[Rfam]
RNA sequence: GGGCUCUCAAGUCACUAGUGGUUCCGUUUAGUGAUGUUGCGCAUUGAUUCGAAAUGGUGCCCUAGUGACUACAAAGCCC
Numbered sequence: 001g002g003g004c005u006c007u008c009a010a011g012u013c014a015c016u017a018g019u020g021g022u023u024c025c026g027u028u029u030a031g032u033g034a035u036g037u038u039g040c041g042c043a044u045u046g047a048u049u050c051g052a053a054a055u056g057g058u059g060c061c062c063u064a065g066u067g068a069c070u071a072c073a074a075a076g077c078c079c
Stems, first nucleotide, its partner, number of pairs: 001079005007073001010070009020061003024057006031050001033049003036044002
RNA: mir-224 microRNA precursor family
Organism: Galemys pyrenaicus